[Rfam]
RNA sequence: UGUCUGUCUGCGGGAGAGCGCCAAUUGGCCGCCGAAGGGGAAAUCGCCCGAAAUCUCUCAGGUACAAGGAACCGCAGACGGGUA
Numbered sequence: 001u002g003u004c005u006g007u008c009u010g011c012g013g014g015a016g017a018g019c020g021c022c023a024a025u026u027g028g029c030c031g032c033c034g035a036a037g038g039g040g041a042a043a044u045c046g047c048c049c050g051a052a053a054u055c056u057c058u059c060a061g062g063u064a065c066a067a068g069g070a071a072c073c074g075c076a077g078a079c080g081g082g083u084a
Stems, first nucleotide, its partner, number of pairs: 006079008020029003031063003034059002038057003044051002